[Rfam]
RNA sequence: AUGCCUUAAACUAAUGAGUAAGGAAAAUAACGACCCGGGGUGACGCCCGAGUCCUCGCCACGACAAGCGAGAGCAAUUUUUGAACGGGUACAGGUCGGAGCUGCCAGGUGACCUGCCUACUUUGCGGGAUGCCGGCGGCGACGUGAUCUGCCCC
Numbered sequence: 001a002u003g004c005c006u007u008a009a010a011c012u013a014a015u016g017a018g019u020a021a022g023g024a025a026a027a028u029a030a031c032g033a034c035c036c037g038g039g040g041u042g043a044c045g046c047c048c049g050a051g052u053c054c055u056c057g058c059c060a061c062g063a064c065a066a067g068c069g070a071g072a073g074c075a076a077u078u079u080u081u082g083a084a085c086g087g088g089u090a091c092a093g094g095u096c097g098g099a100g101c102u103g104c105c106a107g108g109u110g111a112c113c114u115g116c117c118u119a120c121u122u123u124g125c126g127g128g129a130u131g132c133c134g135g136c137g138g139c140g141a142c143g144u145g146a147u148c149u150g151c152c153c154c
Stems, first nucleotide, its partner, number of pairs: 004023005032053003036049004054071005086153004092149006101138002107133004112128005